[Rfam]
RNA sequence: CUCUUAUCCAGAGCGCGUGAGGGAACUGGCCCGAUCAAACGCGCAGCAACCCGCCUUCAUUCCGGCGUGGUGCUCACCAGCCCGCUUCACGCCAACGAUGGCGCAACGACGGGAAUGAUAAGAG
Numbered sequence: 001c002u003c004u005u006a007u008c009c010a011g012a013g014c015g016c017g018u019g020a021g022g023g024a025a026c027u028g029g030c031c032c033g034a035u036c037a038a039a040c041g042c043g044c045a046g047c048a049a050c051c052c053g054c055c056u057u058c059a060u061u062c063c064g065g066c067g068u069g070g071u072g073c074u075c076a077c078c079a080g081c082c083c084g085c086u087u088c089a090c091g092c093c094a095a096c097g098a099u100g101g102c103g104c105a106a107c108g109a110c111g112g113g114a115a116u117g118a119u120a121a122g123a124g
Base pairs, nucleotide, nucleotide: 001124002123003122004121005120006119007118008117013044014043015042016041017040021032022031023030026080027079028078029077045074046073047072048071050070051069052067053066054065055064076116081113082112083111084110086108
RNA: SAM riboswitch aptamer (S box leader)